[Rfam]
The family of this 80-nucleotide RNA sequence from Rhizobium johnstonii is "Makes More Granules Regulator RNA (mmgR)". By type it is a small RNA. Pairs were carried over by alignment from the consensus structure.
Nucleotides: 080
Base pairs, nucleotide, nucleotide: 008019009018011016043065044064045063046062047061049059051057
Number, partner (000 for none) and nucleotide at each position: 001000a002000g003000c004000u005000g006000u007000u008019c009018c010000c011016c012000u013000c014000u015000g016011g017000a018009g019008g020000u021000u022000u023000u024000u025000u026000g027000a028000c029000c030000u031000u032000c033000a034000c035000a036000a037000u038000u039000a040000u041000a042000a043065g044064g045063g046062c047061c048000c049059u050000g051057g052000u053000u054000u055000u056000c057051c058000g059049g060000u061047g062046g063045c064044c065043c066000u067000c068000u069000u070000u071000u072000u073000u074000u075000g076000c077000c078000c079000a080000a
It is one of the family's seed sequences.
SuhB later renamed mmgR (makes more granules regulator) was a putative non-coding RNA found multiple times in the Agrobacterium tumefaciens genome and related alpha-proteobacteria.